[Rfam]
RNA sequence: CCCGGGUGAUCUCUCGCCUGUAAUCCACAAUCGUGGAGGGACACGGGCUGAGCCUUUGGAUGGAGGAGUGGCGCGGCGGUCAGGUUCGGAGAACGCUGUACAAUCUGUGGCGCGCCCGUCUCCAAGCUUGGAGUUGAGGCACGGCAUCCCCUCGUAGGGGAAGGUGUCUGUCUUCCUUGAAGUGGGGGGGACCGCGUGUAGGCCGGUAACGGAGCGACGAAGACCCCCCUCUCCCGGCAGUGGAGGGAUAACGCUGCCCUCGUGCAGCCUCCGAUCAACCUGCCGCCCCGGCUUCUCCACACCUCAGCCCCA
Numbered sequence: 001c002c003c004g005g006g007u008g009a010u011c012u013c014u015c016g017c018c019u020g021u022a023a024u025c026c027a028c029a030a031u032c033g034u035g036g037a038g039g040g041a042c043a044c045g046g047g048c049u050g051a052g053c054c055u056u057u058g059g060a061u062g063g064a065g066g067a068g069u070g071g072c073g074c075g076g077c078g079g080u081c082a083g084g085u086u087c088g089g090a091g092a093a094c095g096c097u098g099u100a101c102a103a104u105c106u107g108u109g110g111c112g113c114g115c116c117c118g119u120c121u122c123c124a125a126g127c128u129u130g131g132a133g134u135u136g137a138g139g140c141a142c143g144g145c146a147u148c149c150c151c152u153c154g155u156a157g158g159g160g161a162a163g164g165u166g167u168c169u170g171u172c173u174u175c176c177u178u179g180a181a182g183u184g185g186g187g188g189g190g191a192c193c194g195c196g197u198g199u200a201g202g203c204c205g206g207u208a209a210c211g212g213a214g215c216g217a218c219g220a221a222g223a224c225c226c227c228c229c230u231c232u233c234c235c236g237g238c239a240g241u242g243g244a245g246g247g248a249u250a251a252c253g254c255u256g257c258c259c260u261c262g263u264g265c266a267g268c269c270u271c272c273g274a275u276c277a278a279c280c281u282g283c284c285g286c287c288c289c290g291g292c293u294u295c296u297c298c299a300c301a302c303c304u305c306a307g308c309c310c311c312a
Stems, first nucleotide, its partner, number of pairs: 001040003004019006024037003045310008061299006069290003073286004081282005087273005095268007109258003112254003116247002120245005126238003130234004136174006143168006151160003176182002184228005195219003203212003
Shown here is a 312-nucleotide RNA sequence from Adiantum capillus-veneris, a member of the family "Metazoan signal recognition particle RNA". The family's RNA type in Rfam is non-coding RNA gene. The signal recognition particle (SRP) is a universally conserved ribonucleoprotein. It is involved in the co-translational targeting of proteins to membranes. The eukaryotic SRP consists of a 300-nucleotide 7S RNA and six proteins: SRPs 72, 68, 54, 19, 14, and 9.